[Rfam]
RNA: Small nucleolar RNA SNORA5
Organism: Tricholaema leucomelas
RNA sequence: UGCAGCCCUUCAAAUUCGUUCCCUGCCUCCUCCAUGGCAGGGAGCGGCCAACCGGCUGCCACAGCACCUUGUGCUUCCACGAGCUCCGUGUCCCCUUCCAGUGGGAUACUGGGGGGUAAGAUGACACAGACACAU
Numbered sequence: 001u002g003c004a005g006c007c008c009u010u011c012a013a014a015u016u017c018g019u020u021c022c023c024u025g026c027c028u029c030c031u032c033c034a035u036g037g038c039a040g041g042g043a044g045c046g047g048c049c050a051a052c053c054g055g056c057u058g059c060c061a062c063a064g065c066a067c068c069u070u071g072u073g074c075u076u077c078c079a080c081g082a083g084c085u086c087c088g089u090g091u092c093c094c095c096u097u098c099c100a101g102u103g104g105g106a107u108a109c110u111g112g113g114g115g116g117u118a119a120g121a122u123g124a125c126a127c128a129g130a131c132a133c134a135u
Base pairs, nucleotide, nucleotide: 002059003058004057005056017046018045019044020043021042022041023040024039025038026037027036071127072126073125076124077123084114085113086112088109089108